[Rfam]
RNA sequence: UCCCCCACAGUCCUCCGACUCUCGUUUUCCGCAAGGAAUGUCUAUCGCAGACCCCCCUCCCAGGCUGGUCAACCACAAUAUGCCGCUCUCGAGCCUGUAUCAGGACCUCGUUGAAUGCCGCAGGGGACCCUGUUGUGGCUACACUGUCGUCCGAUACGGGACGGCCCAGCCUAGCCGGGGGAACGAGUUUCGGAACUUAACCCUAAGAAGAUAU
Numbered sequence: 001u002c003c004c005c006c007a008c009a010g011u012c013c014u015c016c017g018a019c020u021c022u023c024g025u026u027u028u029c030c031g032c033a034a035g036g037a038a039u040g041u042c043u044a045u046c047g048c049a050g051a052c053c054c055c056c057c058u059c060c061c062a063g064g065c066u067g068g069u070c071a072a073c074c075a076c077a078a079u080a081u082g083c084c085g086c087u088c089u090c091g092a093g094c095c096u097g098u099a100u101c102a103g104g105a106c107c108u109c110g111u112u113g114a115a116u117g118c119c120g121c122a123g124g125g126g127a128c129c130c131u132g133u134u135g136u137g138g139c140u141a142c143a144c145u146g147u148c149g150u151c152c153g154a155u156a157c158g159g160g161a162c163g164g165c166c167c168a169g170c171c172u173a174g175c176c177g178g179g180g181g182a183a184c185g186a187g188u189u190u191c192g193g194a195a196c197u198u199a200a201c202c203c204u205a206a207g208a209a210g211a212u213a214u
Base pairs, nucleotide, nucleotide: 009197010196011195015193016192017191018190

The record is a 214-nucleotide part of an RNA from Cylindrodendrum hubeiense, which matches "Ascomycota telomerase RNA" in Rfam. A search with the family's covariance model found it, with a score of 364 bits. For this family Rfam cites "The common ancestral core of vertebrate and fungal telomerase RNAs" (Qi et al., Nucleic Acids Res, 2013). The family is grouped with related families in Rfam's "Telomerase clan". The family has 4 seed sequences and 475 matches in Rfam 15.1. Taxonomically the source falls in Cylindrodendrum (Eukaryota, Ascomycota, Sordariomycetes, Hypocreomycetidae).